This 95-nucleotide RNA sequence from Marchantia polymorpha belongs to the Rfam family "Small nucleolar RNA Z157/R69/R10". Rfam 15.1 lists 836 matches to the family in 232 species. A search with the family's covariance model found it, with a score of 57 bits. On this family, see Chen et al., Nucleic Acids Res 2003: "The high diversity of snoRNAs in plants: identification and comparative study of 120 snoRNA genes from Oryza sativa". Gene Ontology terms of the family: RNA processing and nucleolus.

RNA sequence: UACAAUGCAGUGAUGAAAAACAAGUGUUUCGGACUAGAGUUUCUGAUCUGGUUUACCAGGCUGAUGAGAAACCUCUUGGCUGGCUGAGCAUCAUU
Numbered sequence: 001u002a003c004a005a006u007g008c009a010g011u012g013a014u015g016a017a018a019a020a021c022a023a024g025u026g027u028u029u030c031g032g033a034c035u036a037g038a039g040u041u042u043c044u045g046a047u048c049u050g051g052u053u054u055a056c057c058a059g060g061c062u063g064a065u066g067a068g069a070a071a072c073c074u075c076u077u078g079g080c081u082g083g084c085u086g087a088g089c090a091u092c093a094u095u
Stems, first nucleotide, its partner, number of pairs: 002094001005091004040066001042064002047060005
The base pairs follow the family's consensus structure, which was predicted with PFOLD. Rfam classes the family as a C/D-box small nucleolar RNA.